Shown here is a 147-nucleotide RNA from Camellia sinensis, a member of the family "MIR168 microRNA precursor family". The family's consensus secondary structure was predicted with WAR. On this family, see Reinhart et al., Genes Dev 2002: "MicroRNAs in plants".

[Rfam]
RNA sequence: AUUGCGGCGGUCUCUAAUUCGCUUGGUGCAGGUCGGGAACUGCUUCGCCACCGGUGGCGGCGGCGGCGGCGGCGGCGGAGAUGGGUGGUUUGGUGGUGGCGAAUUGGAUCCCGCCUUGCAUCAACUGAAUCGGAGACCGCGGUGAAU
Numbered sequence: 001a002u003u004g005c006g007g008c009g010g011u012c013u014c015u016a017a018u019u020c021g022c023u024u025g026g027u028g029c030a031g032g033u034c035g036g037g038a039a040c041u042g043c044u045u046c047g048c049c050a051c052c053g054g055u056g057g058c059g060g061c062g063g064c065g066g067c068g069g070c071g072g073c074g075g076c077g078g079a080g081a082u083g084g085g086u087g088g089u090u091u092g093g094u095g096g097u098g099g100c101g102a103a104u105u106g107g108a109u110c111c112c113g114c115c116u117u118g119c120a121u122c123a124a125c126u127g128a129a130u131c132g133g134a135g136a137c138c139g140c141g142g143u144g145a146a147u
Stems, first nucleotide, its partner, number of pairs: 013134002017130004023124010034113005040107002
Dot-bracket structure: ............((..((((..((((((((((.(((((.((................................................................)).))))).))))))))))..))))..)).............